RNA sequence: UGCGGAUUCUAAGUAGUAGUGCCGCAGGUCACUGAUAUUGGGUAACCUGCUCCCUGCUACUUAAGAUCCUUG
Number, nucleotide and partner (000 for none) at each position: 001u072002g071003c000004g069005g068006a067007u066008u000009c000010u063011a062012a061013g060014u059015a058016g057017u056018a055019g054020u000021g000022c000023c000024g050025c049026a048027g047028g046029u045030c000031a000032c000033u000034g000035a000036u000037a000038u000039u000040g000041g000042g000043u000044a000045a029046c028047c027048u026049g025050c024051u000052c000053c000054c019055u018056g017057c016058u015059a014060c013061u012062u011063a010064a000065g000066a007067u006068c005069c004070u000071u002072g001
Rfam assigns this 72-nucleotide RNA sequence from Trichuris suis to the family "mir-252 microRNA precursor family".
The match comes from Rfam's covariance-model search (56 bits).
The base pairs follow the family's consensus structure, which was predicted with RNAalifold.
Its family is annotated with miRNA-mediated post-transcriptional gene silencing and RISC complex in the Gene Ontology.
The literature on the family includes a 2009 paper in BMC Genomics by Li et al., "Direct sequencing and expression analysis of a large number of miRNAs in Aedes aegypti and a multi-species survey of novel mosquito miRNAs".